[Rfam]
Shown here is a 68-nucleotide sequence from Flavobacterium sp. ALD4, a member of the family "DUF805 RNA". The family has 46 seed sequences and 281 matches in Rfam 15.1. The family's RNA type in Rfam is cis-regulatory element. Lineage of the source: Bacteria > Bacteroidota > Flavobacteriia > Flavobacteriaceae > Flavobacterium. The match comes from Rfam's covariance-model search (76 bits). The base pairs follow the family's consensus structure, which is taken from published work.
RNA sequence: UAGAAGUGGAGUCCAGUGACCACAAAUAAAACGGGGCGAAUUCGAAAAGCCUAAUGAGUAGAAAAACA
Numbered sequence: 001u002a003g004a005a006g007u008g009g010a011g012u013c014c015a016g017u018g019a020c021c022a023c024a025a026a027u028a029a030a031a032c033g034g035g036g037c038g039a040a041u042u043c044g045a046a047a048a049g050c051c052u053a054a055u056g057a058g059u060a061g062a063a064a065a066a067c068a
Stems, first nucleotide, its partner, number of pairs: 006023004035051003042062002
Dot-bracket structure: .....((((..........))))...........(((....[[.....))).........]]......